Shown here is a 75-nucleotide RNA, a member of the family "c-di-GMP-I-GGC riboswitch aptamer". Clan: c-di-GMP_I riboswitch clan. Gene Ontology term of the family: cyclic-di-GMP binding.
RNA sequence: CAAGAAAAAGCCAAACCUGCCGCAAGACAGGGACGAGGAAUCACAGGUUUCUUUGAAAUAGCCGAGUUGCCUUGA
Numbered sequence: 001c002a003a004g005a006a007a008a009a010g011c012c013a014a015a016c017c018u019g020c021c022g023c024a025a026g027a028c029a030g031g032g033a034c035g036a037g038g039a040a041u042c043a044c045a046g047g048u049u050u051c052u053u054u055g056a057a058a059u060a061g062c063c064g065a066g067u068u069g070c071c072u073u074g075a
Stems, first nucleotide, its partner, number of pairs: 003072002012035001016031004021026001034061001039068003044064001046063002049058002